[Rfam]
RNA sequence: GUGUCCCCUAGAGUUCCUCUGAGCACUUCAUUGGGAAUUCUCGAUCAAAUGAAAUGAAAGAGUUUUAUCAUUCCUACUGAAGUGUUUGGGGGAACUCCCGGUGUCAU
Numbered sequence: 001g002u003g004u005c006c007c008c009u010a011g012a013g014u015u016c017c018u019c020u021g022a023g024c025a026c027u028u029c030a031u032u033g034g035g036a037a038u039u040c041u042c043g044a045u046c047a048a049a050u051g052a053a054a055u056g057a058a059a060g061a062g063u064u065u066u067a068u069c070a071u072u073c074c075u076a077c078u079g080a081a082g083u084g085u086u087u088g089g090g091g092g093a094a095c096u097c098c099c100g101g102u103g104u105c106a107u
Stems, first nucleotide, its partner, number of pairs: 005103001007101002011097010022087002024084007032076007